The record is an 86-nucleotide RNA from Zafaria cholistanensis, which matches "ZMP/ZTP riboswitch aptamer (pfl RNA motif)" in Rfam. For this family Rfam cites "Recognition of the bacterial alarmone ZMP through long-distance association of two RNA subdomains" (Jones and Ferre-D'Amare, Nat Struct Mol Biol, 2015). The base pairs follow the family's consensus structure, which is taken from published work.
RNA sequence: GGAACCCGUCGCGACUGGCGUUGGGUGGAUGACCACCGGGGAGCGGCACGAGCGUCGACCACGGACCGCGCGCCUGGGCCCGUGGA
Numbered sequence: 001g002g003a004a005c006c007c008g009u010c011g012c013g014a015c016u017g018g019c020g021u022u023g024g025g026u027g028g029a030u031g032a033c034c035a036c037c038g039g040g041g042a043g044c045g046g047c048a049c050g051a052g053c054g055u056c057g058a059c060c061a062c063g064g065a066c067c068g069c070g071c072g073c074c075u076g077g078g079c080c081c082g083u084g085g086a
Stems, first nucleotide, its partner, number of pairs: 005050001008047005015040002017074005025036004063081002066078002